[Rfam]
Nucleotides: 055
Stems, first nucleotide, its partner, number of pairs: 007055019
Number, partner (000 for none) and nucleotide at each position: 001000a002000a003000g004000c005000c006000a007055u008054u009053g010052a011051g012050a013049a014048a015047c016046c017045u018044u019043u020042g021041a022040a023039u024038c025037a026000u027000u028000u029000a030000c031000a032000u033000u034000a035000c036000a037025u038024g039023a040022u041021u042020c043019a044018a045017a046016g047015g048014u049013u050012u051011c052010u053009c054008a055007a

The record is a 55-nucleotide RNA from Ziziphus jujuba, which matches "Plastid-ccsA-ndhD-1 3UTR RNA" in Rfam. It scores 51 bits against the family's covariance model. The family is grouped with related families in Rfam's "Plastid-ccsA_ndhD 3UTR RNA clan". A reference for the family is Richter et al. (2023), "Retrograde signaling in plants: A critical review focusing on the GUN pathway and beyond", Plant Commun. The family's consensus secondary structure was predicted with LocARNA. Plastid-ccsA-ndhD-1 is a non-coding RNA (ncRNA) recognised in plastids. It was found in the three prime untranslated region (3UTR) of ccsA and ndhD genes, its 3UTR location suggests a role in transcript maturation.